Shown here is an 86-nucleotide RNA from Diaphorina citri, a member of the family "Selenocysteine transfer RNA". The family's consensus secondary structure is taken from published work. NCBI's taxonomy places the organism under Eukaryota, Ecdysozoa, Allotriocarida, Sternorrhyncha, Diaphorina.
RNA sequence: GCCCAGCUGAACCGUAGUGGUCUGCGGUGCAGGCUUCAAACCUGUAGCUGAUUAGCGUCAGAGUGGUUCGAUUCCACCUGUUGGGC
Numbered sequence: 001g002c003c004c005a006g007c008u009g010a011a012c013c014g015u016a017g018u019g020g021u022c023u024g025c026g027g028u029g030c031a032g033g034c035u036u037c038a039a040a041c042c043u044g045u046a047g048c049u050g051a052u053u054a055g056c057g058u059c060a061g062a063g064u065g066g067u068u069c070g071a072u073u074c075c076a077c078c079u080g081u082u083g084g085g086c
Base pairs, nucleotide, nucleotide: 001086002085003084004083005082006081007080009078012027013026014025015024016023017022028046029045030044031043032042033041048061049060050059051058052057063077064076065075066074